The family of this 58-nucleotide sequence from Varibaculum cambriense is "msiK RNA". The family's consensus secondary structure is taken from published work. Lineage of the source: Bacteria > Actinomycetota > Actinomycetales > Actinomycetaceae > Varibaculum cambriense.
RNA sequence: UACAAUAGACACUCCACUCGGAUCGUCGGGCACGUACCUGCCCGUGGAGGAGAGAUAU
Numbered sequence: 001u002a003c004a005a006u007a008g009a010c011a012c013u014c015c016a017c018u019c020g021g022a023u024c025g026u027c028g029g030g031c032a033c034g035u036a037c038c039u040g041c042c043c044g045u046g047g048a049g050g051a052g053a054g055a056u057a058u
Base pairs, nucleotide, nucleotide: 010050012049013048014047015046016045027044028043029042030041031040032039